[Rfam]
RNA sequence: UCGUGCUAGAUGGGGAGGUAGCGGUGCCCUGUAACCCGCAAUCCGCUAUAGCGGGGUUGAAUUCCUAUUAGCGGGCAUCUCCAUGUAAGGUCUGACUUAUGCAAGUGGUGUUGACAGUUGGGUCCUACGCAACGGAAACCCAUGAACCCCGUCAGGUCCGGAAGGAAGCAGCGGUAAGUGGAAUUUUUCGUGUGUUGUGGGGUUGCCUAGCUUGAGCUAACUACAUGAGUUCGCUUGGAUGGGAUGUUCAAUAAUAGGUGCACGG
Numbered sequence: 001u002c003g004u005g006c007u008a009g010a011u012g013g014g015g016a017g018g019u020a021g022c023g024g025u026g027c028c029c030u031g032u033a034a035c036c037c038g039c040a041a042u043c044c045g046c047u048a049u050a051g052c053g054g055g056g057u058u059g060a061a062u063u064c065c066u067a068u069u070a071g072c073g074g075g076c077a078u079c080u081c082c083a084u085g086u087a088a089g090g091u092c093u094g095a096c097u098u099a100u101g102c103a104a105g106u107g108g109u110g111u112u113g114a115c116a117g118u119u120g121g122g123u124c125c126u127a128c129g130c131a132a133c134g135g136a137a138a139c140c141c142a143u144g145a146a147c148c149c150c151g152u153c154a155g156g157u158c159c160g161g162a163a164g165g166a167a168g169c170a171g172c173g174g175u176a177a178g179u180g181g182a183a184u185u186u187u188u189c190g191u192g193u194g195u196u197g198u199g200g201g202g203u204u205g206c207c208u209a210g211c212u213u214g215a216g217c218u219a220a221c222u223a224c225a226u227g228a229g230u231u232c233g234c235u236u237g238g239a240u241g242g243g244a245u246g247u248u249c250a251a252u253a254a255u256a257g258g259u260g261c262a263c264g265g
Base pairs, nucleotide, nucleotide: 001265002264003263004262005261006260009058010057011056012030013029014028015027017025019023035055036054037053038052039051064258065257066256067255068254069253070252073249074248075247076246077245080243081242082241083240084239086237087236088235089234094230097228098227099226100225101224105221106220107218108217109216116212117211118210119209120208121207122206123205124201125200126199127198128197129196130192131191133190134189135188136187137186140181141180142179143178149174150173151172152171157166158165159164
Notes:
The family of this 265-nucleotide RNA from Tepidibacillus sp. HK-1 is "Bacterial large signal recognition particle RNA". The match comes from Rfam's covariance-model search (220 bits).